Record summary
A member of the RNA family "Small nucleolar RNA snR191" from Candidozyma auris, 261 nucleotides long. Pairs were carried over by alignment from the consensus structure, which was predicted with WAR. On this family, see Badis et al., RNA 2003: "A snoRNA that guides the two most conserved pseudouridine modifications within rRNA confers a growth advantage in yeast". A search with the family's covariance model found it, with a score of 92 bits.
[Rfam]
RNA sequence: ACCCAAAGCCUUUUGUCAGGGUGAACGUCUCGAAUAAUUCGAAUCAUCUACACAUUUGCCUGUUACGUCUUUGGAAGAUCAAUGCUACCCGCCCGCAGGCCCUUGUUACAAGGUGACAUAGCCGUUUUGGCCAUGACUUCGUCUGCACUGCUGAUAGUUUUUAUUAGCGCCAUAGGGUAGAUUUCGGAAUCUUUUUGAGUUGGACCUGCUUGCUUACUGGGUAUCUCCAUAAGCUUGUCCGUAGUAUAGAAUCCGACACUC
Numbered sequence: 001a002c003c004c005a006a007a008g009c010c011u012u013u014u015g016u017c018a019g020g021g022u023g024a025a026c027g028u029c030u031c032g033a034a035u036a037a038u039u040c041g042a043a044u045c046a047u048c049u050a051c052a053c054a055u056u057u058g059c060c061u062g063u064u065a066c067g068u069c070u071u072u073g074g075a076a077g078a079u080c081a082a083u084g085c086u087a088c089c090c091g092c093c094c095g096c097a098g099g100c101c102c103u104u105g106u107u108a109c110a111a112g113g114u115g116a117c118a119u120a121g122c123c124g125u126u127u128u129g130g131c132c133a134u135g136a137c138u139u140c141g142u143c144u145g146c147a148c149u150g151c152u153g154a155u156a157g158u159u160u161u162u163a164u165u166a167g168c169g170c171c172a173u174a175g176g177g178u179a180g181a182u183u184u185c186g187g188a189a190u191c192u193u194u195u196u197g198a199g200u201u202g203g204a205c206c207u208g209c210u211u212g213c214u215u216a217c218u219g220g221g222u223a224u225c226u227c228c229a230u231a232a233g234c235u236u237g238u239c240c241g242u243a244g245u246a247u248a249g250a251a252u253c254c255g256a257c258a259c260u261c
Base pairs, nucleotide, nucleotide: 003074004073005072006071007070019061020060021059022058023057024056025055027053028052030042031041032040033039034038085180086179087178088177089176090175095146096145097144098143099142100141150168151167152166153165154164155163156162157161185255186254187253188252190250191249192248201241202240203239204238205237208234209233210232211231215223216222217221
Dot-bracket structure: ..(((((...........(((((((.((.(((((...))))).........)).)))))))........)))))..........((((((....((((((........................................))))))...((((((((...))))))))......))))))....((((.(((........(((((..((((...(((...))).......))))..)))))......))).))))......